Source information:
Shown here is a 154-nucleotide sequence from Nocardioides mangrovicus, a member of the family "c-di-AMP riboswitch aptamer (ydaO/yuaA leader)". The organism belongs to Nocardioides, within Bacteria. Rfam describes the family as follows. This family represents a conserved RNA structure found upstream of the ydaO and yuaA genes in Bacillus subtilis and related genes in other bacteria. The ydaO/yuaA element is thought to act as a genetic 'off' switch for the ydaO and yuaA genes in its native state. It is believed that the element may be triggered during osmotic shock leading to activation of ydaO, a predicted amino acid transporter gene, and members of the yuaA-yubG operon which code for KtrA and KtrB K+ transporters.
RNA sequence: UCGGAGGCCACGCUGAGUCGGGGUCCGAGACAUCGGGCGCCGAGCCGGGGAACCAAGUACGUGGGGUGAAUCCGGACCCUCCCCAGAGGGACCGGUAGGGCAAUCGUGAGCCCGAAUCCGUCAGCUCACCUGGUAAGCGUCGACACGAAAGGGA
Dot-bracket structure: ..........((((...(((....................)))((((((....((......))(((.....((((................))))..((((........))))...))).........)))))).))))...............